Annotation
Rfam assigns this 59-nucleotide RNA sequence from Lachnospiraceae bacterium TWA4 to the family "Transposase-1 RNA". It scores 46 bits against the family's covariance model. The family's RNA type in Rfam is small RNA.

RNA sequence: CUAUAAGAGCUAGUCCAUGCGAGUUCUUCCUUGUUGGAGAAUCGGAAUACUAGUGUUGA
Numbered sequence: 001c002u003a004u005a006a007g008a009g010c011u012a013g014u015c016c017a018u019g020c021g022a023g024u025u026c027u028u029c030c031u032u033g034u035u036g037g038a039g040a041a042u043c044g045g046a047a048u049a050c051u052a053g054u055g056u057u058g059a
Base pairs, nucleotide, nucleotide: 009054010053011052012051013050014049020044021043022042027038028037029036

The family's consensus secondary structure is taken from published work.